[Rfam]
RNA sequence: GGCCUCCCUCUGUGGGGCAAUCAAUCACGGAGCCCUGCCAUCAAUCGCCCCACAGAGGGAGGCC
Numbered sequence: 001g002g003c004c005u006c007c008c009u010c011u012g013u014g015g016g017g018c019a020a021u022c023a024a025u026c027a028c029g030g031a032g033c034c035c036u037g038c039c040a041u042c043a044a045u046c047g048c049c050c051c052a053c054a055g056a057g058g059g060a061g062g063c064c
Stems, first nucleotide, its partner, number of pairs: 001064018020045002024041002028037003